[Rfam]
RNA sequence: AUGAGGGCGACCGAAUGUGGGGAGGAAGCGUGGAGCGAAACUGCGAGCCGAUGAACAAGAACCGGAUAGAAGGCGUUGCCGACCAGGGCGAGCGCGCAAAGAAGCGUAAAGCUCUCGUGAUCAAGGGGAGAUGGCGUAGAUCCGGCGGUUGUGCAGUGAAGGAGUGCGUUC
Numbered sequence: 001a002u003g004a005g006g007g008c009g010a011c012c013g014a015a016u017g018u019g020g021g022g023a024g025g026a027a028g029c030g031u032g033g034a035g036c037g038a039a040a041c042u043g044c045g046a047g048c049c050g051a052u053g054a055a056c057a058a059g060a061a062c063c064g065g066a067u068a069g070a071a072g073g074c075g076u077u078g079c080c081g082a083c084c085a086g087g088g089c090g091a092g093c094g095c096g097c098a099a100a101g102a103a104g105c106g107u108a109a110a111g112c113u114c115u116c117g118u119g120a121u122c123a124a125g126g127g128g129a130g131a132u133g134g135c136g137u138a139g140a141u142c143c144g145g146c147g148g149u150u151g152u153g154c155a156g157u158g159a160a161g162g163a164g165u166g167c168g169u170u171c
Base pairs, nucleotide, nucleotide: 001016002015005012006011028171030169031168032167036162040157041156042155043154044153045152046150047149048148049147050146062145063144064143065142066141067140073137074136075135077129079128080127083126084125086114087113088112089111092107093106094105095104
RNA: Group II catalytic intron D1-D4-3